Rfam assigns this 77-nucleotide RNA sequence from Climacteris rufus to the family "mir-1788 microRNA precursor family".
NCBI's taxonomy places the organism under Eukaryota, Bilateria, Chordata, Aves, Climacteris.
The base pairs follow the family's consensus structure, which was predicted with RNAalifold.
[Rfam]
RNA sequence: CUGUCCCCGGGGCUUGUUUUCCGUUGCCUGAGGGUUGUUUUGGUGACUCAGGCAGCGAAAGCAAGUCUGGGAGGCUG
Numbered sequence: 001c002u003g004u005c006c007c008c009g010g011g012g013c014u015u016g017u018u019u020u021c022c023g024u025u026g027c028c029u030g031a032g033g034g035u036u037g038u039u040u041u042g043g044u045g046a047c048u049c050a051g052g053c054a055g056c057g058a059a060a061g062c063a064a065g066u067c068u069g070g071g072a073g074g075c076u077g
Base pairs, nucleotide, nucleotide: 003075004074007071008070010068011067012066013065014064015063016062017061018060019059020058022057023056024055025054026053027052028051029050030049032047